[Rfam]
RNA sequence: GGGAUGUGAUGAGCGGUGAUAACUCGCUAUGCGAGAGGAGUGCCCAGCCCACUUCUUCUGUUACGACAACACGUGGGCGCUCACAUUAUUGCCAAUCUGAUCCC
Numbered sequence: 001g002g003g004a005u006g007u008g009a010u011g012a013g014c015g016g017u018g019a020u021a022a023c024u025c026g027c028u029a030u031g032c033g034a035g036a037g038g039a040g041u042g043c044c045c046a047g048c049c050c051a052c053u054u055c056u057u058c059u060g061u062u063a064c065g066a067c068a069a070c071a072c073g074u075g076g077g078c079g080c081u082c083a084c085a086u087u088a089u090u091g092c093c094a095a096u097c098u099g100a101u102c103c104c
Base pairs, nucleotide, nucleotide: 001104002103003102004101016093023035024034025033026032027031038082039081040080041079042078043077044076058075060070061069
RNA: Small nucleolar RNA Z279/snoR105/snoR108
Organism: Vanilla planifolia